The record is a 202-nucleotide sequence, which matches "HNH endonuclease-associated RNA and ORF (HEARO) RNA" in Rfam. Pairs were carried over by alignment from the consensus structure, which is taken from published work. The family has 139 seed sequences and 952 matches in Rfam 15.1. For this family Rfam cites "Exceptional structured noncoding RNAs revealed by bacterial metagenome analysis" (Weinberg et al., Nature, 2009). The family's RNA type in Rfam is non-coding RNA gene.

RNA sequence: AUUACCUAACCCCUCUUCGGAAAACUAGCAAUAGUUUAGGUGAUUAGUCUCAGUCCCUAGUGGACUAUGUUGGAUUUCUCACGACACCCACAGAUAAUACCCUAGUCGGUGGCAACUGUCGGCAUGUUUUAAAAGUUCUAAGGGCAAGGAACAGUGAGCAUGCCUUAAAAAGGAUUUCCAACCUUGACGAAGGGCAAAUAAA
Numbered sequence: 001a002u003u004a005c006c007u008a009a010c011c012c013c014u015c016u017u018c019g020g021a022a023a024a025c026u027a028g029c030a031a032u033a034g035u036u037u038a039g040g041u042g043a044u045u046a047g048u049c050u051c052a053g054u055c056c057c058u059a060g061u062g063g064a065c066u067a068u069g070u071u072g073g074a075u076u077u078c079u080c081a082c083g084a085c086a087c088c089c090a091c092a093g094a095u096a097a098u099a100c101c102c103u104a105g106u107c108g109g110u111g112g113c114a115a116c117u118g119u120c121g122g123c124a125u126g127u128u129u130u131a132a133a134a135g136u137u138c139u140a141a142g143g144g145c146a147a148g149g150a151a152c153a154g155u156g157a158g159c160a161u162g163c164c165u166u167a168a169a170a171a172g173g174a175u176u177u178c179c180a181a182c183c184u185u186g187a188c189g190a191a192g193g194g195c196a197a198a199u200a201a202a
Base pairs, nucleotide, nucleotide: 001044002043003042004041005040006039007038008037012020013019024035025034026033027032047188048187049186052066053065054064055063056062069182070181071180072179073178074177077174078173079172084119085118088112089111090110091109093107094106095105098196100194101193102192103191121164122163123162124161125160126159127158128157129156133155135152136151137150138149139148